[Rfam]
RNA sequence: UUACACCCAUGGCGGGCGAAGCAUAUACCCUAGAUGAUUUUGUGGGUAAUCAGUAUAUGUUCAGUCUGGUGAUAUAAGCACAGCUUUAUAUCUUCAAAGUUUUUU
Numbered sequence: 001u002u003a004c005a006c007c008c009a010u011g012g013c014g015g016g017c018g019a020a021g022c023a024u025a026u027a028c029c030c031u032a033g034a035u036g037a038u039u040u041u042g043u044g045g046g047u048a049a050u051c052a053g054u055a056u057a058u059g060u061u062c063a064g065u066c067u068g069g070u071g072a073u074a075u076a077a078g079c080a081c082a083g084c085u086u087u088a089u090a091u092c093u094u095c096a097a098a099g100u101u102u103u104u105u
Stems, first nucleotide, its partner, number of pairs: 005047007013068003017064001021060008036051004072091006
Rfam assigns this 105-nucleotide RNA sequence to the family "RT-5 RNA". Rfam classes the family as a small RNA. It is one of the family's seed sequences.